[Rfam]
A member of the RNA family "Small nucleolar RNA SNORD126" from Mus musculus, 77 nucleotides long. Its family is annotated with RNA processing and nucleolus in the Gene Ontology. By type it is a C/D-box small nucleolar RNA. Lineage of the source: Eukaryota > Opisthokonta > Deuterostomia > Gnathostomata > Mus. A reference for the family is Yang et al. (2006), "snoSeeker: an advanced computational package for screening of guide and orphan snoRNA genes in the human genome", Nucleic Acids Res. The family's consensus secondary structure was predicted with WAR.
RNA sequence: AGUUUGCUAUGAUGAAAUGCAUGUGAAGUCCGUGUUUCAGCUGAUCACACUGAUUAUACACAUGUGCUGAGCAGACA
Numbered sequence: 001a002g003u004u005u006g007c008u009a010u011g012a013u014g015a016a017a018u019g020c021a022u023g024u025g026a027a028g029u030c031c032g033u034g035u036u037u038c039a040g041c042u043g044a045u046c047a048c049a050c051u052g053a054u055u056a057u058a059c060a061c062a063u064g065u066g067c068u069g070a071g072c073a074g075a076c077a
Stems, first nucleotide, its partner, number of pairs: 002076006